[Rfam]
RNA sequence: UGACGGGGGCCCGCACAAGCAGCGGAGCGUGUGGUUUAAUUCGAGGCUACGCGAAGAACCUUACCUGGGCUUGACAUCCUGCGAAUGAACCAGAGAUGGGGAAGUCCCUUCGGGGCGCAGAGACAGGUGCUGCAUGGCUGUCGUCAGCUCGUGCCGUGAGGUGUUCGGUUAAGUCCGCAAACGAGCGCAACCCUUAUUGCUAGUUACAAGUGUCUAGCGAGACUGCCCGUGGUAAACGGGAGGAAGGUGGGGAUGACGUCAAGUCAGCAUGGCCUUUAUGUCCAGGGCUACACACACGCUACAAUGGUCGGUACAAUGGGUCGCGAAGCCGCGAGGUGGAGCCAAUCCUGAAAGCCGAUCUCAGUUCGGAUUACAGGCUGCAACUCGCCUGUAUGAAGUCGGAGUUGCUAGUAACCGCGCAUCAGCACGGUGCGGUGAAUACGUUCCCGGGCCUUGUACACACCGCCCGUCACGUCAUGGGAGCUGGUUACGCCUGAAGUCGGGAAGCUAACCUAACGGGGGCUACCGCCGAGGGCAGGACUGGUGACUGGGACGAAGUCGUAACAAGGUAGCUGUAGCGGAAGCUGCGGCUGGAUCACC
Numbered sequence: 001u002g003a004c005g006g007g008g009g010c011c012c013g014c015a016c017a018a019g020c021a022g023c024g025g026a027g028c029g030u031g032u033g034g035u036u037u038a039a040u041u042c043g044a045g046g047c048u049a050c051g052c053g054a055a056g057a058a059c060c061u062u063a064c065c066u067g068g069g070c071u072u073g074a075c076a077u078c079c080u081g082c083g084a085a086u087g088a089a090c091c092a093g094a095g096a097u098g099g100g101g102a103a104g105u106c107c108c109u110u111c112g113g114g115g116c117g118c119a120g121a122g123a124c125a126g127g128u129g130c131u132g133c134a135u136g137g138c139u140g141u142c143g144u145c146a147g148c149u150c151g152u153g154c155c156g157u158g159a160g161g162u163g164u165u166c167g168g169u170u171a172a173g174u175c176c177g178c179a180a181a182c183g184a185g186c187g188c189a190a191c192c193c194u195u196a197u198u199g200c201u202a203g204u205u206a207c208a209a210g211u212g213u214c215u216a217g218c219g220a221g222a223c224u225g226c227c228c229g230u231g232g233u234a235a236a237c238g239g240g241a242g243g244a245a246g247g248u249g250g251g252g253a254u255g256a257c258g259u260c261a262a263g264u265c266a267g268c269a270u271g272g273c274c275u276u277u278a279u280g281u282c283c284a285g286g287g288c289u290a291c292a293c294a295c296a297c298g299c300u301a302c303a304a305u306g307g308u309c310g311g312u313a314c315a316a317u318g319g320g321u322c323g324c325g326a327a328g329c330c331g332c333g334a335g336g337u338g339g340a341g342c343c344a345a346u347c348c349u350g351a352a353a354g355c356c357g358a359u360c361u362c363a364g365u366u367c368g369g370a371u372u373a374c375a376g377g378c379u380g381c382a383a384c385u386c387g388c389c390u391g392u393a394u395g396a397a398g399u400c401g402g403a404g405u406u407g408c409u410a411g412u413a414a415c416c417g418c419g420c421a422u423c424a425g426c427a428c429g430g431u432g433c434g435g436u437g438a439a440u441a442c443g444u445u446c447c448c449g450g451g452c453c454u455u456g457u458a459c460a461c462a463c464c465g466c467c468c469g470u471c472a473c474g475u476c477a478u479g480g481g482a483g484c485u486g487g488u489u490a491c492g493c494c495u496g497a498a499g500u501c502g503g504g505a506a507g508c509u510a511a512c513c514u515a516a517c518g519g520g521g522g523c524u525a526c527c528g529c530c531g532a533g534g535g536c537a538g539g540a541c542u543g544g545u546g547a548c549u550g551g552g553a554c555g556a557a558g559u560c561g562u563a564a565c566a567a568g569g570u571a572g573c574u575g576u577a578g579c580g581g582a583a584g585c586u587g588c589g590g591c592u593g594g595a596u597c598a599c600c
Base pairs, nucleotide, nucleotide: 001460002459003457004456005455007454008453009452010451011450012449013448015444016443019408020407021406022405023404024302026300027299028298029297030296031295032294033293034291035290040055041054042053043052064286065285066284067283068282069281070280077123078122079120080119081118082117083116086103090099091098092097105115106114107113108112126275127274129273130272131271132270135269136268137264138263139262140260142258143257147186148185149184150183151182152181153162154161155160166177167176168175192252193251194250195249197220198219199218200217201216202215203214207212223243224242226240227239228238229237230236306360307359308358309357310356311355312354318349319348320347323342324341328337329336330335367398372393373392374391375390376389377388378387414436415435416434417433418432419431420430463568465565468561469560473555474554475553476552478550479549480548483545484544485543486542487541488540489539492536493535494534499530501528502527503526506524507523508522509521512519513518570593571592572591573590574589575588576587577586578585579584
Dot-bracket structure: (((((.(((((((.((..((((((.((((((((((....((((........))))........(((((((......(((((((..(...(((....)))...).((((...))))))))).))..((.((((..((((((.((...(((((((((....)))...(((......)))...)))))).....((((.(((((((...(....).)))))))..((.(((((.....))))).)).....))))....)).).)))...))))))))....)))))))...)).)))))))).)...(((((((.....(((..((...(((....)))...))....)))....)))))))......(....(((((((........)))))))....).....))))).....(((((((.........)))))))......))...)))))))))).))..(.(..((...((((.(((..(((((((..(((....(.(((..((((..((....)).)))).))).)...)))..)))))))..))).))))....))...)..).((((((((((....)))))))))).......